Shown here is a 76-nucleotide sequence from Myotis brandtii, a member of the family "mir-9223 microRNA precursor family".
Gene Ontology terms of the family: RISC complex and miRNA-mediated post-transcriptional gene silencing.
The organism belongs to Myotis, within Eukaryota.
The match comes from Rfam's covariance-model search (85 bits).
[Rfam]
RNA sequence: GGCAGUUCUCAGGUGAUGCACCCCGGAAUUGAGCUCCCUCCUCUCUGGUUCCAGGGUGCAUCACCCAAGAACUGCC
Numbered sequence: 001g002g003c004a005g006u007u008c009u010c011a012g013g014u015g016a017u018g019c020a021c022c023c024c025g026g027a028a029u030u031g032a033g034c035u036c037c038c039u040c041c042u043c044u045c046u047g048g049u050u051c052c053a054g055g056g057u058g059c060a061u062c063a064c065c066c067a068a069g070a071a072c073u074g075c076c
Stems, first nucleotide, its partner, number of pairs: 002075002005072005012065006019058005025052007033044001